U1A polyadenylation inhibition element (PIE): a 76-nucleotide sequence from Channa argus. NCBI's taxonomy places the organism under Eukaryota, Bilateria, Vertebrata, Clupeocephala, Channa. The base pairs follow the family's consensus structure, which is taken from published work. It is annotated as a cis-regulatory element. The match comes from Rfam's covariance-model search (75 bits). Rfam describes the family as follows. This family represents the U1A polyadenylation inhibition element (PIE).
[Rfam]
RNA sequence: UUAUAAAGCAUUGCACCCAGAGUCUGGUUUACCAGACAUUGUACCUGGAGCUUUUUUGUUUUUAUAAUUAAAAUGU
Numbered sequence: 001u002u003a004u005a006a007a008g009c010a011u012u013g014c015a016c017c018c019a020g021a022g023u024c025u026g027g028u029u030u031a032c033c034a035g036a037c038a039u040u041g042u043a044c045c046u047g048g049a050g051c052u053u054u055u056u057u058g059u060u061u062u063u064a065u066a067a068u069u070a071a072a073a074u075g076u
Base pairs, nucleotide, nucleotide: 005054006053007052008051009050017048018047019046020045022037023036024035025034026033